[Rfam]
Overview: The record is a 204-nucleotide RNA sequence from Fukomys damarensis, which matches "Small nucleolar RNA SNORA73 family" in Rfam. Rfam 15.1 lists 2,326 matches to the family in 660 species. The source organism's lineage runs through Eukaryota, Eumetazoa, Bilateria, Bathyergidae and Fukomys. On this family, see Enright et al., RNA 1996: "5'ETS rRNA processing facilitated by four small RNAs: U14, E3, U17, and U3". It scores 191 bits against the family's covariance model. Pairs were carried over by alignment from the consensus structure, which is taken from published work. U17 (SNORA73A and SNORA73B) also known as E1 belongs to the H/ACA class of small nucleolar RNAs (snoRNAs). Vertebrate U17 is intron-encoded and ranges in length from 200-230 nucleotides, longer than most snoRNAs. It is one of the most abundant snoRNAs in human cells and is essential for the cleavage of pre-rRNA within the 5' external transcribed spacer (ETS). This cleavage leads to the formation of 18S rRNA. Regions of the U17 RNA are complementary to rRNA and act as guides for RNA/RNA interactions, although these regions do not seem to be well conserved between organisms.

RNA sequence: CCAACAUGGAUAUCCCGGGAGGUCACUCUCCCUGGGCUCUGUCCAGGUGGCCUACGGGAGCAUAGGGCUCUGCCCGAUGAUGUACAGUCCCUUUCCACAAUGUUGGAGAAGAAGCUGGGCCUUGUGUUUAUGCCUGCAUAUUCCUACAACUUCUCAGAGUCCUUUGGGCAACGACUGAGGAGAUAGACCAUGUGGGAAACAAUG
Numbered sequence: 001c002c003a004a005c006a007u008g009g010a011u012a013u014c015c016c017g018g019g020a021g022g023u024c025a026c027u028c029u030c031c032c033u034g035g036g037c038u039c040u041g042u043c044c045a046g047g048u049g050g051c052c053u054a055c056g057g058g059a060g061c062a063u064a065g066g067g068c069u070c071u072g073c074c075c076g077a078u079g080a081u082g083u084a085c086a087g088u089c090c091c092u093u094u095c096c097a098c099a100a101u102g103u104u105g106g107a108g109a110a111g112a113a114g115c116u117g118g119g120c121c122u123u124g125u126g127u128u129u130a131u132g133c134c135u136g137c138a139u140a141u142u143c144c145u146a147c148a149a150c151u152u153c154u155c156a157g158a159g160u161c162c163u164u165u166g167g168g169c170a171a172c173g174a175c176u177g178a179g180g181a182g183a184u185a186g187a188c189c190a191u192g193u194g195g196g197a198a199a200c201a202a203u204g
Stems, first nucleotide, its partner, number of pairs: 001106007008044005014036003018029004047098004056091004060085001062083003065078001133196007150182006159169004
Dot-bracket structure: ((((((((((((.(((.((((....))))....)))...)))))..((((.....(((((.((((............)..))).)..))))...)))).)))))))..........................(((((((..........((((((...((((...)))).......)))))).......)))))))........